Description
Shown here is a 115-nucleotide RNA sequence from Lysobacteraceae bacterium NML03-0222, a member of the family "Xanthomonadaceae sRNA sX13".
RNA sequence: AAUGUCUGACGUUGGAUCACUCCCUCUCCCCUGGAGUUGAUCUUGGAGCGGCAUCCCUCCCCAAGAUGUCGUUCUUUCCCCUGCCCCGCCGGCCCCCCUCCGGCGGGGCUUUUUA
Numbered sequence: 001a002a003u004g005u006c007u008g009a010c011g012u013u014g015g016a017u018c019a020c021u022c023c024c025u026c027u028c029c030c031c032u033g034g035a036g037u038u039g040a041u042c043u044u045g046g047a048g049c050g051g052c053a054u055c056c057c058u059c060c061c062c063a064a065g066a067u068g069u070c071g072u073u074c075u076u077u078c079c080c081c082u083g084c085c086c087c088g089c090c091g092g093c094c095c096c097c098c099u100c101c102g103g104c105g106g107g108g109c110u111u112u113u114u115a
Stems, first nucleotide, its partner, number of pairs: 004013001006011001014043006020036004045079002047073009083109007091101002
Background
The family's consensus secondary structure was predicted with CMfinder.